Background:
The family of this 128-nucleotide RNA sequence from Pseudomonas paraeruginosa is "rmf RNA". The family's consensus secondary structure is taken from published work. Rfam classes the family as a cis-regulatory element.
RNA sequence: UUGGUUAGAACUCCAGUUAAUCCGUCACCGCAACGGUGUCGGGCGAGGGUCGUCACGCCGGCAACGACCCCUUUCGGCGAAAGCUUCGCCAGGCCUCCCCUGGGGGCCAACGGGACAUAACAGUCAAC
Numbered sequence: 001u002u003g004g005u006u007a008g009a010a011c012u013c014c015a016g017u018u019a020a021u022c023c024g025u026c027a028c029c030g031c032a033a034c035g036g037u038g039u040c041g042g043g044c045g046a047g048g049g050u051c052g053u054c055a056c057g058c059c060g061g062c063a064a065c066g067a068c069c070c071c072u073u074u075c076g077g078c079g080a081a082a083g084c085u086u087c088g089c090c091a092g093g094c095c096u097c098c099c100c101u102g103g104g105g106g107c108c109a110a111c112g113g114g115a116c117a118u119a120a121c122a123g124u125c126a127a128c
Base pairs, nucleotide, nucleotide: 022042023041024040026038027037028036029035047070048069049068050067051066052065053064076090077089078088079087080086081085092108093107094106095105096104097103
Dot-bracket structure: .....................(((.((((.....)))).)))....(((((((..........))))))).....((((((...)))))).((((((.....))))))....................